mir-147 microRNA precursor family: an 81-nucleotide RNA sequence from Myripristis murdjan. Lineage of the source: Eukaryota > Bilateria > Actinopteri > Teleostei > Myripristis. Rfam links the family to the GO terms RISC complex and miRNA-mediated post-transcriptional gene silencing. It scores 68 bits against the family's covariance model. A reference for the family is Kawaji et al. (2008), "Hidden layers of human small RNAs", BMC Genomics.

RNA sequence: CAUCAGUCUAACAGAAUCCUUUCCGCACAGACUAGGUCGCUGUGACAUUCAGUGUGCGGAAAUGCUUCUGCUACACCGGUG
Numbered sequence: 001c002a003u004c005a006g007u008c009u010a011a012c013a014g015a016a017u018c019c020u021u022u023c024c025g026c027a028c029a030g031a032c033u034a035g036g037u038c039g040c041u042g043u044g045a046c047a048u049u050c051a052g053u054g055u056g057c058g059g060a061a062a063u064g065c066u067u068c069u070g071c072u073a074c075a076c077c078g079g080u081g
Base pairs, nucleotide, nucleotide: 001081002080004078006076007075009073010072012070013069014068015067016066018064020062021061022060023059024058025057026056027055028054029053032052033051